Rfam assigns this 59-nucleotide RNA sequence from Penthorum chinense to the family "Plastid-psbA-2 3UTR RNA".
About the family: Plastid psbA-2 is a non-coding RNA (ncRNA) present in plastids.
For this family Rfam cites "Retrograde signaling in plants: A critical review focusing on the GUN pathway and beyond" (Richter et al., Plant Commun, 2023).
Pairs were carried over by alignment from the consensus structure, which was predicted with LocARNA.
The family is grouped with related families in Rfam's "Plastid-psbA 3UTR RNA clan".

RNA sequence: AAGGAGCAAUACCAAAUUUCUUGUUCUAUCAAGAGAUUUGGUAUUGCUCCUUUAUUUUC
Numbered sequence: 001a002a003g004g005a006g007c008a009a010u011a012c013c014a015a016a017u018u019u020c021u022u023g024u025u026c027u028a029u030c031a032a033g034a035g036a037u038u039u040g041g042u043a044u045u046g047c048u049c050c051u052u053u054a055u056u057u058u059c
Stems, first nucleotide, its partner, number of pairs: 001052011014037001019034005
The family's RNA type in Rfam is cis-regulatory element.